[Rfam]
RNA sequence: UUAUAAGAAGAAGUUUAUUUUUUAGAUUCAUAGAAUGUUGGAUGUAUCUGGUCUAUAUUAUUGACUAGAUACACCCAACAUUCUAUGAAUCUAAAAAGUAAAUUUUUUCUUAUAA
Numbered sequence: 001u002u003a004u005a006a007g008a009a010g011a012a013g014u015u016u017a018u019u020u021u022u023u024a025g026a027u028u029c030a031u032a033g034a035a036u037g038u039u040g041g042a043u044g045u046a047u048c049u050g051g052u053c054u055a056u057a058u059u060a061u062u063g064a065c066u067a068g069a070u071a072c073a074c075c076c077a078a079c080a081u082u083c084u085a086u087g088a089a090u091c092u093a094a095a096a097a098g099u100a101a102a103u104u105u106u107u108u109c110u111u112a113u114a115a
Stems, first nucleotide, its partner, number of pairs: 002114006009107005015101011027089015043073002049067004
Source information: Shown here is a 115-nucleotide RNA sequence from Trifolium pratense, a member of the family "MIR2593 microRNA precursor family". The family's consensus secondary structure was predicted with RNAalifold. Taxonomically the source falls in Trifolium (Eukaryota, eudicotyledons, Fabales, Trifolieae). The match comes from Rfam's covariance-model search (98 bits).